[Rfam]
RNA sequence: UGGACAGAUUAUUGUAUUCGGAUGUAUUCGACUGUAUUCACGGUGUGAAACCGGGGAUUACACUAUUUUUAAAUAGAAAGUGAAUACAUUAACAUAAUAAACUCCU
Numbered sequence: 001u002g003g004a005c006a007g008a009u010u011a012u013u014g015u016a017u018u019c020g021g022a023u024g025u026a027u028u029c030g031a032c033u034g035u036a037u038u039c040a041c042g043g044u045g046u047g048a049a050a051c052c053g054g055g056g057a058u059u060a061c062a063c064u065a066u067u068u069u070u071a072a073a074u075a076g077a078a079a080g081u082g083a084a085u086a087c088a089u090u091a092a093c094a095u096a097a098u099a100a101a102c103u104c105c106u
Stems, first nucleotide, its partner, number of pairs: 002105003009100007017092002021090002024087002036085006044075003047069004053063001
Shown here is a 106-nucleotide RNA from Nicotiana tabacum, a member of the family "MIR6152 microRNA precursor family". Lineage of the source: Eukaryota > Streptophytina > Magnoliopsida > Pentapetalae > Nicotiana. Rfam 15.1 lists 5,807 matches to the family in 3 species. Its family is annotated with miRNA-mediated post-transcriptional gene silencing and RISC complex in the Gene Ontology. The match comes from Rfam's covariance-model search (67 bits). Pairs were carried over by alignment from the consensus structure, which was predicted with RNAalifold.